Small nucleolar RNA SNORD60: a 91-nucleotide RNA sequence from Anolis carolinensis. Gene Ontology terms of the family: nucleolus and RNA processing. The source organism's lineage runs through Eukaryota, Craniata, Amniota, Toxicofera and Anolis. It scores 62 bits against the family's covariance model.
RNA sequence: AGCCCGUGAUGAGCUCUUCCAUUUAUUUUCUGACACCUCGUCUGAACGCUGCGCUCGCAGUGCACUGAUUAUGGGACAUGAGCUGAGGCUG
Numbered sequence: 001a002g003c004c005c006g007u008g009a010u011g012a013g014c015u016c017u018u019c020c021a022u023u024u025a026u027u028u029u030c031u032g033a034c035a036c037c038u039c040g041u042c043u044g045a046a047c048g049c050u051g052c053g054c055u056c057g058c059a060g061u062g063c064a065c066u067g068a069u070u071a072u073g074g075g076a077c078a079u080g081a082g083c084u085g086a087g088g089c090u091g
Base pairs, nucleotide, nucleotide: 001090002089003088004087048061049060050059051058052057